[Rfam]
RNA sequence: AGUACCUUGCAUGUAAUUGUUCAACUGCUGGACAAAGGAAUGAAAGACAGGUGCAAAAAUAAAUCUUCUUUUGCAAUACAAAAUGCAUUGUUCAGUAUGAGUUUUGAUUCAUACAAGGACUAUAACACU
Number, nucleotide and partner (000 for none) at each position: 001a000002g054003u053004a052005c051006c050007u049008u047009g000010c000011a000012u000013g000014u038015a000016a000017u035018u034019g033020u032021u000022c000023a000024a000025c030026u000027g000028c000029u000030g025031g000032a020033c019034a018035a017036a000037g000038g014039a000040a000041u000042g000043a000044a000045a000046g000047a008048c000049a007050g006051g005052u004053g003054c002055a000056a000057a000058a000059a000060u000061a000062a000063a000064u125065c000066u000067u122068c000069u118070u117071u116072u115073g114074c000075a000076a000077u000078a000079c106080a105081a104082a103083a102084u101085g000086c099087a098088u097089u000090g000091u000092u000093c000094a000095g000096u000097a088098u087099g086100a000101g084102u083103u082104u081105u080106g079107a000108u000109u000110c000111a000112u000113a000114c073115a072116a071117g070118g069119a000120c000121u000122a067123u000124a000125a064126c000127a000128c000129u000
Rfam assigns this 129-nucleotide sequence from Nannospalax galili to the family "Small nucleolar RNA SNORA40". It is annotated as an H/ACA-box small nucleolar RNA. The organism belongs to Nannospalax, within Eukaryota. Rfam's curators write: The snoRNA ACA 40 belongs to the H/ACA family of snoRNAs and guides the pseudouridylation of 28S rRNA subunit at position U4565. The family has 28 seed sequences and 2,550 matches in Rfam 15.1. Its family is annotated with nucleolus and RNA processing in the Gene Ontology.